Rfam assigns this 84-nucleotide RNA from Brachypteracias leptosomus to the family "Small nucleolar RNA SNORD53/SNORD92". The literature on the family includes a 1996 paper in Cell by Kiss-Laszlo et al., "Site-specific ribose methylation of preribosomal RNA: a novel function for small nucleolar RNAs". The family is grouped with related families in Rfam's "SNORD52 clan".

RNA sequence: AUGCAGUGAUGAUCUCUUAAGUGGUGCUUUCAAUUCGCUGAUAGUUGAAUGAAGAGGUGAAUUUCCUUGGCUGUGUCUGAGCAU
Numbered sequence: 001a002u003g004c005a006g007u008g009a010u011g012a013u014c015u016c017u018u019a020a021g022u023g024g025u026g027c028u029u030u031c032a033a034u035u036c037g038c039u040g041a042u043a044g045u046u047g048a049a050u051g052a053a054g055a056g057g058u059g060a061a062u063u064u065c066c067u068u069g070g071c072u073g074u075g076u077c078u079g080a081g082c083a084u
Stems, first nucleotide, its partner, number of pairs: 001084004
By type it is a C/D-box small nucleolar RNA. Pairs were carried over by alignment from the consensus structure. Its family is annotated with RNA processing and nucleolus in the Gene Ontology.